[Rfam]
RNA sequence: GGCCUAAAGCGUCCGUAGCCGGACUGGCAAGUCCCUUGUGAAAUCGGGCGGCUUAACCGCUCGGCGUGCAGGGGAAACUGUCAGUCUUGGGGUCGGCAGGCGCCGAGGGUACUCCAGGGGUAGCGGUGAAAUGCUAUAAUCCCUGGGGGACCGCCAGUGGCGAAAGCGCUCGGCGGGGCCGAACCCGACGGUGAGGGACGAAAGCCAGAGGAGCGAACCGGAUUAGAUACCCGGGUAGUUCCGGCCGCAAAGAAUGUGGGCUAGGUGCUUGGUGUUCCUCGAGAACACUAGGUGCCGAAGGGAAGCCGUUAAGCCCACCGCCUGGGAAUUACGGCCGCAAGGCUGAAACUUAAAGAAAU
Numbered sequence: 001g002g003c004c005u006a007a008a009g010c011g012u013c014c015g016u017a018g019c020c021g022g023a024c025u026g027g028c029a030a031g032u033c034c035c036u037u038g039u040g041a042a043a044u045c046g047g048g049c050g051g052c053u054u055a056a057c058c059g060c061u062c063g064g065c066g067u068g069c070a071g072g073g074g075a076a077a078c079u080g081u082c083a084g085u086c087u088u089g090g091g092g093u094c095g096g097c098a099g100g101c102g103c104c105g106a107g108g109g110u111a112c113u114c115c116a117g118g119g120g121u122a123g124c125g126g127u128g129a130a131a132u133g134c135u136a137u138a139a140u141c142c143c144u145g146g147g148g149g150a151c152c153g154c155c156a157g158u159g160g161c162g163a164a165a166g167c168g169c170u171c172g173g174c175g176g177g178g179c180c181g182a183a184c185c186c187g188a189c190g191g192u193g194a195g196g197g198a199c200g201a202a203a204g205c206c207a208g209a210g211g212a213g214c215g216a217a218c219c220g221g222a223u224u225a226g227a228u229a230c231c232c233g234g235g236u237a238g239u240u241c242c243g244g245c246c247g248c249a250a251a252g253a254a255u256g257u258g259g260g261c262u263a264g265g266u267g268c269u270u271g272g273u274g275u276u277c278c279u280c281g282a283g284a285a286c287a288c289u290a291g292g293u294g295c296c297g298a299a300g301g302g303a304a305g306c307c308g309u310u311a312a313g314c315c316c317a318c319c320g321c322c323u324g325g326g327a328a329u330u331a332c333g334g335c336c337g338c339a340a341g342g343c344u345g346a347a348a349c350u351u352a353a354a355g356a357a358a359u
Base pairs, nucleotide, nucleotide: 001322002321003320009319011199012198013197014196016193018192019191020190022086023085024084025083026082027081028080030079031078032075033074034073035072036071037070038069039068040067045063046062047061048060049059050058051057090186091185092184093182094181095180096179097178101175102174103173104172105171106170107169108152109151112148113147114146115145116144117143118142119141123134124133125132160167161166204245205244206243208241209240213239214238218234219233220232221231256318257317258316259315260314261313264296265295266294267293268292269291270290271289272288273287274286275285276284277283300307301306324351325350326349333344334343335342336341
Rfam assigns this 359-nucleotide part of an RNA from uncultured euryarchaeote to the family "Archaeal small subunit ribosomal RNA". Rfam 15.1 lists 709 matches to the family in 491 species. Its Rfam clan is "SSU clan". The source organism's lineage runs through Archaea, Methanobacteriati and Methanobacteriota.